[Rfam]
RNA sequence: CCCUGACAGCGGCGUUGGGCCGCUGACACUUACCCGACAGGAGAUUCUCAUG
Numbered sequence: 001c002c003c004u005g006a007c008a009g010c011g012g013c014g015u016u017g018g019g020c021c022g023c024u025g026a027c028a029c030u031u032a033c034c035c036g037a038c039a040g041g042a043g044a045u046u047c048u049c050a051u052g
Base pairs, nucleotide, nucleotide: 002041003040004039005038007025008024009023010022011021